[Rfam]
RNA sequence: GGCGUAAAUUUGAAGUAGAGUACAUUAGUAUGGCCAGGUGAUCGUACUAUUCGACUCUACUUCAAAUUUGAGCCC
Numbered sequence: 001g002g003c004g005u006a007a008a009u010u011u012g013a014a015g016u017a018g019a020g021u022a023c024a025u026u027a028g029u030a031u032g033g034c035c036a037g038g039u040g041a042u043c044g045u046a047c048u049a050u051u052c053g054a055c056u057c058u059a060c061u062u063c064a065a066a067u068u069u070g071a072g073c074c075c
Stems, first nucleotide, its partner, number of pairs: 001074003005070005011064011026049005032043002035040001
RNA: mir-5928 microRNA precursor family